[Rfam]
RNA: 5' ureB small RNA
RNA sequence: UUCUUCGAUCUGCUGCGGGCAGAUGAAGUGGAUGUGGGUGUCGAUGCCGCCGGCGGUGACGAUCAUGCCUUCGCCGGCGAUGAUCUCGGUGGCGGCGCCGAUAACGAUGUCGACGCCGGGCUGGAUGUCCGGGUUGCCGGCCUUGCCGAUGGCGGCGAUGCGGCCGUUCUUGAGCGCGAGGUCGGCCUUGACGAUGCCCCAGUGGUCGAGGAUCAGGGCAUUGGUGAUGACGGUGUCGGCCACUUCUUCGGCCAACCUUUGGCCCUGACCCAUGCCGUCGCGGAU
Numbered sequence: 001u002u003c004u005u006c007g008a009u010c011u012g013c014u015g016c017g018g019g020c021a022g023a024u025g026a027a028g029u030g031g032a033u034g035u036g037g038g039u040g041u042c043g044a045u046g047c048c049g050c051c052g053g054c055g056g057u058g059a060c061g062a063u064c065a066u067g068c069c070u071u072c073g074c075c076g077g078c079g080a081u082g083a084u085c086u087c088g089g090u091g092g093c094g095g096c097g098c099c100g101a102u103a104a105c106g107a108u109g110u111c112g113a114c115g116c117c118g119g120g121c122u123g124g125a126u127g128u129c130c131g132g133g134u135u136g137c138c139g140g141c142c143u144u145g146c147c148g149a150u151g152g153c154g155g156c157g158a159u160g161c162g163g164c165c166g167u168u169c170u171u172g173a174g175c176g177c178g179a180g181g182u183c184g185g186c187c188u189u190g191a192c193g194a195u196g197c198c199c200c201a202g203u204g205g206u207c208g209a210g211g212a213u214c215a216g217g218g219c220a221u222u223g224g225u226g227a228u229g230a231c232g233g234u235g236u237c238g239g240c241c242a243c244u245u246c247u248u249c250g251g252c253c254a255a256c257c258u259u260u261g262g263c264c265c266u267g268a269c270c271c272a273u274g275c276c277g278u279c280g281c282g283g284a285u
Base pairs, nucleotide, nucleotide: 001284002283004282006280007279008278011157012156013155014154015153016152017075018074021071022070029052030051031050033049034048036047038045039044056068057067058066076147077146080143082141084139089137090136091135092134093133094129095128096127098124099123101122105118106116163269165267166266169262170261172259173258174257185219186218187217188216189215190214199208222254223253224252227247229245230244233243234242235241